[Rfam]
RNA sequence: AUUGUAAAAGCCAAACCUGUCGUGAGACGGGGACGGAAAGCCACGGGUCUUACGGAGACAGCCGGGUUGCCUUGA
Numbered sequence: 001a002u003u004g005u006a007a008a009a010g011c012c013a014a015a016c017c018u019g020u021c022g023u024g025a026g027a028c029g030g031g032g033a034c035g036g037a038a039a040g041c042c043a044c045g046g047g048u049c050u051u052a053c054g055g056a057g058a059c060a061g062c063c064g065g066g067u068u069g070c071c072u073u074g075a
Stems, first nucleotide, its partner, number of pairs: 004071001011036002016031006034061001039068004044064003047059003
This 75-nucleotide RNA sequence from Desulfonema magnum belongs to the Rfam family "c-di-GMP-I-GGC riboswitch aptamer". Clan: c-di-GMP_I riboswitch clan. Taxonomically the source falls in Desulfonema (Bacteria, Pseudomonadati, Thermodesulfobacteriota, Desulfobacterales).